[Rfam]
RNA sequence: UAAUGAGAAUACAAACAGGGAGCACCCCCAUAAGAGUGCUCCCCUAGCAGAGCCGUUUAAGACGGCGGCAACUAUUGGGCUAAAUA
Numbered sequence: 001u002a003a004u005g006a007g008a009a010u011a012c013a014a015a016c017a018g019g020g021a022g023c024a025c026c027c028c029c030a031u032a033a034g035a036g037u038g039c040u041c042c043c044c045u046a047g048c049a050g051a052g053c054c055g056u057u058u059a060a061g062a063c064g065g066c067g068g069c070a071a072c073u074a075u076u077g078g079g080c081u082a083a084a085u086a
Stems, first nucleotide, its partner, number of pairs: 024037002027034001052066006

Shown here is an 86-nucleotide sequence from Lacticaseibacillus paracasei, a member of the family "RNA anti-toxin A".
The organism belongs to Lacticaseibacillus paracasei, within Bacteria.
Rfam 15.1 lists 190 matches to the family in 120 species.
Rfam classes the family as an antitoxin RNA.
The base pairs follow the family's consensus structure, which was predicted with RNAalifold.
The match comes from Rfam's covariance-model search (56 bits).